[Rfam]
RNA sequence: UGCUGUGGAAGGCAAACCAGUUUUAAAGACUGGGACGCAAAGCCUCCGAUCUAAAGGUUUGCUUGUACCUAUGAUAGCGGGGAUCCCACA
Numbered sequence: 001u002g003c004u005g006u007g008g009a010a011g012g013c014a015a016a017c018c019a020g021u022u023u024u025a026a027a028g029a030c031u032g033g034g035a036c037g038c039a040a041a042g043c044c045u046c047c048g049a050u051c052u053a054a055a056g057g058u059u060u061g062c063u064u065g066u067a068c069c070u071a072u073g074a075u076a077g078c079g080g081g082g083a084u085c086c087c088a089c090a
Stems, first nucleotide, its partner, number of pairs: 012038002017033006041084001043082002046080003049075003056069003
RNA: c-di-GMP-I riboswitch aptamer